A member of the RNA family "Coronavirus 3' UTR pseudoknot" from Eurystomus gularis, 64 nucleotides long. A reference for the family is Williams et al. (1999), "A phylogenetically conserved hairpin-type 3' untranslated region pseudoknot functions in coronavirus RNA replication", J Virol. The organism belongs to Eurystomus, within Eukaryota. Clan: Coronavirus 3' UTR. Its family is annotated with viral genome replication in the Gene Ontology. By type it is a cis-regulatory element.
RNA sequence: CUAUUCUUAAACAGAAGAGAUUUCUGUUUAAUAUCAGUGUAACUGCAUGGAUAUUAAUAAAUUC
Numbered sequence: 001c002u003a004u005u006c007u008u009a010a011a012c013a014g015a016a017g018a019g020a021u022u023u024c025u026g027u028u029u030a031a032u033a034u035c036a037g038u039g040u041a042a043c044u045g046c047a048u049g050g051a052u053a054u055u056a057a058u059a060a061a062u063u064c
Stems, first nucleotide, its partner, number of pairs: 007042003011038002028059001029056007